[Rfam]
RNA sequence: AAUUGAAUGAUGAUAUUGAGGAUAUUGGCCGUGGCGACAUCAGUUGCCGUGAGCUUUCAAUCCAAAAAACGACUUCUCUUUCCACUGAGGAUU
Numbered sequence: 001a002a003u004u005g006a007a008u009g010a011u012g013a014u015a016u017u018g019a020g021g022a023u024a025u026u027g028g029c030c031g032u033g034g035c036g037a038c039a040u041c042a043g044u045u046g047c048c049g050u051g052a053g054c055u056u057u058c059a060a061u062c063c064a065a066a067a068a069a070c071g072a073c074u075u076c077u078c079u080u081u082c083c084a085c086u087g088a089g090g091a092u093u
Base pairs, nucleotide, nucleotide: 001093002092003091004090
Small nucleolar RNA Z152/R70/R12/: a 93-nucleotide RNA from Leersia perrieri. Pairs were carried over by alignment from the consensus structure, which was predicted with PFOLD.